[Rfam]
RNA sequence: UUAAUGCUAAUCGUGAUAGGGGUUCUGUUGUUUAAAAAAAAGACACCUAGCAUGUAAGCAUUAGC
Numbered sequence: 001u002u003a004a005u006g007c008u009a010a011u012c013g014u015g016a017u018a019g020g021g022g023u024u025c026u027g028u029u030g031u032u033u034a035a036a037a038a039a040a041a042g043a044c045a046c047c048u049a050g051c052a053u054g055u056a057a058g059c060a061u062u063a064g065c
Stems, first nucleotide, its partner, number of pairs: 001064008010055002017049004022044003